[Rfam]
The record is a 70-nucleotide RNA from Maritimibacter alkaliphilus, which matches "RT-13 RNA" in Rfam. It is annotated as a small RNA.

RNA sequence: GCGUGCGUUCGGGGGACGCCCGGCCUAACAAACCGGAGCCCAGGGUCAGGGCCAGUCCUCCGAACUCUGC
Numbered sequence: 001g002c003g004u005g006c007g008u009u010c011g012g013g014g015g016a017c018g019c020c021c022g023g024c025c026u027a028a029c030a031a032a033c034c035g036g037a038g039c040c041c042a043g044g045g046u047c048a049g050g051g052c053c054a055g056u057c058c059u060c061c062g063a064a065c066u067c068u069g070c
Stems, first nucleotide, its partner, number of pairs: 007065011020036004038052004
Rfam's curators put it in the seed alignment.